[Rfam]
RNA sequence: UGCUUAUCAAGAAAGGUGUAGGGAAUUGGCCCGAUGAAACCUUGGCAACCUGUCUUCAACAAUUUUGACACGAUUGGCGUGACGUAAUACAGUUGAAAGCAAGGUGCCACUUCCAAUCCGCGCAACGGCGCGGUCAGAUAAGUC
Number, nucleotide and partner (000 for none) at each position: 001u000002g143003c142004u141005u140006a139007u138008c137009a000010a000011g000012a000013a043014a042015g041016g040017u039018g000019u000020a000021g032022g031023g030024a000025a000026u116027u115028g114029g113030c023031c022032c021033g000034a000035u000036g000037a000038a000039a017040c016041c015042u014043u013044g108045g107046c106047a105048a000049c104050c103051u000052g100053u099054c000055u000056u000057c000058a000059a000060c000061a000062a000063u000064u000065u000066u000067g000068a000069c000070a000071c000072g000073a000074u000075u000076g000077g000078c000079g000080u000081g000082a000083c000084g000085u000086a000087a000088u000089a000090c000091a000092g000093u000094u000095g000096a000097a000098a000099g053100c052101a000102a000103g050104g049105u047106g046107c045108c044109a000110c000111u000112u136113c029114c028115a027116a026117u000118c133119c132120g131121c130122g129123c128124a000125a000126c000127g000128g123129c122130g121131c120132g119133g118134u000135c000136a112137g008138a007139u006140a005141a004142g003143u002144c000